[Rfam]
RNA: Bacillaceae-1 RNA
Organism: Bacillus sp. FJAT-50079
Nucleotides: 068
Stems, first nucleotide, its partner, number of pairs: 011051007026040005055067004
Number, partner (000 for none) and nucleotide at each position: 001000a002000g003000a004000a005000a006000a007000g008000g009000a010000u011051c012050u013049u014048c015047u016046g017045u018000u019000a020000a021000g022000a023000u024000c025000g026040c027039u028038c029037a030036c031000g032000u033000c034000c035000u036030g037029u038028g039027a040026g041000c042000a043000a044000c045017a046016c047015a048014g049013a050012a051011g052000c053000c054000a055067g056066u057065a058064c059000a060000u061000c062000c063000u064058g065057u066056a067055u068000a